[Rfam]
The family of this 145-nucleotide RNA sequence from a Muribaculaceae bacterium is "RT-3 RNA". It scores 88 bits against the family's covariance model. Taxonomically the source falls in Muribaculaceae (Bacteria, Bacteroidota, Bacteroidia, Bacteroidales). By type it is a small RNA. Pairs were carried over by alignment from the consensus structure, which is taken from published work.
RNA sequence: UUUUGUCCUCCGGCAGUGGCGACGUGUCGCCGACGCCGUGGCAGGGAAGGGAGCCGCAGCACAGCCGCCAACGGCGGAACGCUGGAAAAUCACGCGCGGGGUAGCGUUUAGUAGGGCCUAAAGGCAGCCGAAACACGCAGGCCCC
Number, nucleotide and partner (000 for none) at each position: 001u000002u000003u043004u000005g042006u041007c040008c000009u000010c000011c038012g037013g036014c035015a000016g000017u000018g031019g030020c029021g028022a027023c000024g000025u000026g000027u022028c021029g020030c019031c018032g000033a000034c000035g014036c013037c012038g011039u000040g007041g006042c005043a003044g000045g055046g054047a000048a000049g000050g000051g000052a000053g000054c046055c045056g000057c084058a083059g082060c081061a000062c000063a000064g000065c000066c076067g075068c074069c073070a000071a000072c000073g069074g068075c067076g066077g000078a000079a000080c000081g060082c059083u058084g057085g000086a000087a000088a000089a000090u000091c000092a000093c000094g000095c000096g000097c000098g145099g144100g143101g142102u141103a000104g138105c137106g136107u135108u000109u133110a000111g000112u000113a000114g128115g000116g125117c124118c123119u000120a000121a000122a000123g118124g117125c116126a000127g000128c114129c000130g000131a000132a000133a109134c000135a107136c106137g105138c104139a000140g000141g102142c101143c100144c099145c098